Rfam assigns this 343-nucleotide RNA sequence from Danaus plexippus to the family "Nuclear RNase P". Lineage of the source: Eukaryota > Mandibulata > Hexapoda > Obtectomera > Danaus plexippus. It scores 113 bits against the family's covariance model.
RNA sequence: GUUAGCUGUAAUGUCACACUUGGGAUGCACAUACAGAGUACAAAUAUAAAAAAAUAUUACUAUUGGCUUUAAAAGACCUAUAGCGAAAUUAGUUACUCUAUUCAUCCCGGGAAGGUCUGAGUAAAGGUCGCGGUGCAAAGUGGUCACCGUCCCUUCUAGCUGGAGGCAUUGCUAAUAGUGAUGGCAGAGAAACAAGAAACACUAACUUCAGGGCUGGUCGAGGAUUCUUAUAGAGGAGAUUUAACCUUAAAAGUUAUUGGAAUUCUCUGCGACCAGCAAUUUUAGUACAAUCUGUGACACGGAUAUCCAUCCGUAACUCAAUUCAGACUAGUCUUCGGCUUGC
Dot-bracket structure: ((.(...(.(..((((((...(((((.........((((((..................................................).))))).....)))))........[[[[[....................((((......(((((.....)))))((((((.....))))))(((((((............((((((..........................................)))))).......)))))))))))..................))))))((((((....)))))).......]]]]].......).)...).))